[Rfam]
RNA sequence: GCCUAGCCCCGAUAGCAGUGGAAAUCCUUUUGCUUGAUGCUAAGAAAGCAAAAGAUUGCAACGAAUAGCGGGUAAAAGC
Numbered sequence: 001g002c003c004u005a006g007c008c009c010c011g012a013u014a015g016c017a018g019u020g021g022a023a024a025u026c027c028u029u030u031u032g033c034u035u036g037a038u039g040c041u042a043a044g045a046a047a048g049c050a051a052a053a054g055a056u057u058g059c060a061a062c063g064a065a066u067a068g069c070g071g072g073u074a075a076a077a078g079c
Base pairs, nucleotide, nucleotide: 009071010070011069013067014066018062019061023057024056025055026054029052030051031050032049033048034047035046
The record is a 79-nucleotide RNA from Flavobacterium caeni, which matches "Flavo-1 RNA" in Rfam.
Lineage of the source: Bacteria > Bacteroidota > Flavobacteriia > Flavobacteriaceae > Flavobacterium.
It is annotated as a small RNA.
The match comes from Rfam's covariance-model search (71 bits).